[Rfam]
RNA sequence: GUGCCAUGAUGUCAGUUGUCAACACAUCAUUCUGAAGGAUUGUGUAGAGCCCUUCUGGGACUGAGCACC
Dot-bracket structure: ((((............................................................)))).
Shown here is a 69-nucleotide RNA sequence from Chloropsis hardwickii, a member of the family "Small nucleolar RNA SNORD63". On this family, see Galardi et al., Mol Cell Biol 2002: "Purified box C/D snoRNPs are able to reproduce site-specific 2'-O-methylation of target RNA in vitro". The family has 23 seed sequences and 795 matches in Rfam 15.1. About the family: snoRNA U63 is found in both humans and mice.